Source information:
GA-cis RNA: an 88-nucleotide RNA sequence.

[Rfam]
RNA sequence: AUGGGGAGAAAACAAAAAGGACGGAGUUUAUUUUUUUGAAUAUUUCUGAUAAAUUGCCGCUGACCGAUGGGAGGAGGCACUAUAUAUU
Numbered sequence: 001a002u003g004g005g006g007a008g009a010a011a012a013c014a015a016a017a018a019g020g021a022c023g024g025a026g027u028u029u030a031u032u033u034u035u036u037u038g039a040a041u042a043u044u045u046c047u048g049a050u051a052a053a054u055u056g057c058c059g060c061u062g063a064c065c066g067a068u069g070g071g072a073g074g075a076g077g078c079a080c081u082a083u084a085u086a087u088u
Base pairs, nucleotide, nucleotide: 008047010045011044012043016032017031019029020028021027056078057077058076060074061073064070065069
The family's consensus secondary structure is taken from published work. It is one of the family's seed sequences.